SAM riboswitch aptamer (S box leader): a 114-nucleotide sequence from Savagea serpentis.
Lineage of the source: Bacteria > Bacillota > Caryophanales > Caryophanaceae > Savagea.
Rfam's curators write: The SAM riboswitch is found upstream of a number of genes which code for proteins involved in methionine or cysteine biosynthesis in Gram-positive bacteria.
RNA sequence: CUCUUAUCCCGAGUCGGUGGAGGGACAGGCCCUAUGAAACCCAGCAACCUGCAUGAUUUCACUGCAUGCGAAGGUGCCAACCUGAAAGCAAGGAAGUUCCUUGGACGAUAAGAG
Numbered sequence: 001c002u003c004u005u006a007u008c009c010c011g012a013g014u015c016g017g018u019g020g021a022g023g024g025a026c027a028g029g030c031c032c033u034a035u036g037a038a039a040c041c042c043a044g045c046a047a048c049c050u051g052c053a054u055g056a057u058u059u060c061a062c063u064g065c066a067u068g069c070g071a072a073g074g075u076g077c078c079a080a081c082c083u084g085a086a087a088g089c090a091a092g093g094a095a096g097u098u099c100c101u102u103g104g105a106c107g108a109u110a111a112g113a114g
Stems, first nucleotide, its partner, number of pairs: 001114008013042001016041003022032003026088001044077003048074002050070006084106001089103006